[Rfam]
Plastid-rpl16 group II-D1 intron: a 47-nucleotide sequence from Cuscuta europaea.
RNA sequence: AAGAGCUUAAAGCCAAUAAAGACUAAGAAAAAUGGCUAAAGACUUAA
Numbered sequence: 001a002a003g004a005g006c007u008u009a010a011a012g013c014c015a016a017u018a019a020a021g022a023c024u025a026a027g028a029a030a031a032a033u034g035g036c037u038a039a040a041g042a043c044u045u046a047a
Stems, first nucleotide, its partner, number of pairs: 007041002011037005017031001

Description: NCBI's taxonomy places the organism under Eukaryota, Viridiplantae, Pentapetalae, lamiids, Cuscuta subgen. Cuscuta. The literature on the family includes a 2023 paper in Plant Commun by Richter et al., "Retrograde signaling in plants: A critical review focusing on the GUN pathway and beyond". Plastid-rpl16 is a non-coding RNA (ncRNA) recognised in plastids. It was recognised in and intronic region of a ribosome rpl16 gene.